[Rfam]
RNA: MIR403 microRNA precursor family
Organism: Hevea brasiliensis
RNA sequence: GCAUAUUUCAGGUUUGUGCGUGAAUCUAAUAUAGAUUUUUUUUUUCCAUAAAAGAAAUUCGUUAAUUUCUCUAUUGGAUCGUGUUAGAUUCACGCACAAACUCGUAAUCUGCCU
Number, nucleotide and partner (000 for none) at each position: 001g112002c111003a110004u000005a108006u107007u106008u000009c000010a000011g102012g101013u100014u099015u098016g097017u096018g095019c094020g093021u092022g091023a090024a089025u088026c087027u000028a085029a084030u083031a082032u081033a000034g000035a000036u000037u000038u000039u000040u000041u000042u000043u000044u000045u000046c000047c000048a000049u000050a000051a000052a000053a000054g000055a000056a000057a000058u000059u000060c000061g000062u000063u000064a000065a000066u000067u000068u000069c000070u000071c000072u000073a000074u000075u000076g000077g000078a000079u000080c000081g032082u031083g030084u029085u028086a000087g026088a025089u024090u023091c022092a021093c020094g019095c018096a017097c016098a015099a014100a013101c012102u011103c000104g000105u000106a007107a006108u005109c000110u003111g002112c001113c000114u000